The family of this 126-nucleotide sequence from Saccharopolyspora gloriosae is "TPP riboswitch aptamer (THI element)". Gene Ontology term of the family: thiamine pyrophosphate binding.
RNA sequence: ACAACUGAUCGCGGGAGCUCGCACCGGAAGCGGGCUGAGAGGGCGGCUGGAUCAUCCGAUCCGGGGCCGCCGACCGCCUGAACCUGACCGGAUAAUGCCGGCGUAGGGAGUGAACGGCCAUGGCCG
Numbered sequence: 001a002c003a004a005c006u007g008a009u010c011g012c013g014g015g016a017g018c019u020c021g022c023a024c025c026g027g028a029a030g031c032g033g034g035c036u037g038a039g040a041g042g043g044c045g046g047c048u049g050g051a052u053c054a055u056c057c058g059a060u061c062c063g064g065g066g067c068c069g070c071c072g073a074c075c076g077c078c079u080g081a082a083c084c085u086g087a088c089c090g091g092a093u094a095a096u097g098c099c100g101g102c103g104u105a106g107g108g109a110g111u112g113a114a115c116g117g118c119c120a121u122g123g124c125c126g
Stems, first nucleotide, its partner, number of pairs: 006114001010110001011077004017035005042071007083107004088101004
Dot-bracket structure: .....(...(((((..(((((.........)))))......(((((((................)))))))..)))).....((((.((((......))))..))))..)...)............